Shown here is a 96-nucleotide sequence from Pseudoponticoccus marisrubri, a member of the family "Rhodo-rpoB RNA". The source organism's lineage runs through Bacteria, Pseudomonadota, Alphaproteobacteria, Roseobacteraceae and Pseudoponticoccus. It is annotated as a cis-regulatory element.
RNA sequence: GGAUCGAGUGGCUGGCGGUGGGACGCCGGCCGAGAAUGGAUCGGGUCAUCCGCCGUGACUGACGGAAUGCGCCGCCGGGGCCCGACGGCCGGCGCG
Numbered sequence: 001g002g003a004u005c006g007a008g009u010g011g012c013u014g015g016c017g018g019u020g021g022g023a024c025g026c027c028g029g030c031c032g033a034g035a036a037u038g039g040a041u042c043g044g045g046u047c048a049u050c051c052g053c054c055g056u057g058a059c060u061g062a063c064g065g066a067a068u069g070c071g072c073c074g075c076c077g078g079g080g081c082c083c084g085a086c087g088g089c090c091g092g093c094g095c096g
Stems, first nucleotide, its partner, number of pairs: 002042004010031008068096005074089004